[Rfam]
Rfam assigns this 93-nucleotide sequence from Methylobacillus flagellatus to the family "Burkholderia RNA 7 (anti-hemB)". Gene Ontology terms of the family: protein binding and bacterial biofilm matrix. Pairs were carried over by alignment from the consensus structure, which is taken from published work. This RNA motif was identified by computational search in b-proteobacteria Burkholderia. The match comes from Rfam's covariance-model search (60 bits). NCBI's taxonomy places the organism under Bacteria, Pseudomonadota, Betaproteobacteria, Nitrosomonadales, Methylobacillus flagellatus. The family has 26 seed sequences and 479 matches in Rfam 15.1.
RNA sequence: UCUCCCGCUUUCCUCCCUGAGCGGGAAGCCUUAUCCCAAUGAGGCUUAAAUGCUUAACCCCGAUUUUACUCCCCUUUAAUCGGGGUUUUUUUU
Numbered sequence: 001u002c003u004c005c006c007g008c009u010u011u012c013c014u015c016c017c018u019g020a021g022c023g024g025g026a027a028g029c030c031u032u033a034u035c036c037c038a039a040u041g042a043g044g045c046u047u048a049a050a051u052g053c054u055u056a057a058c059c060c061c062g063a064u065u066u067u068a069c070u071c072c073c074c075u076u077u078a079a080u081c082g083g084g085g086u087u088u089u090u091u092u093u
Stems, first nucleotide, its partner, number of pairs: 004025006027046007058085008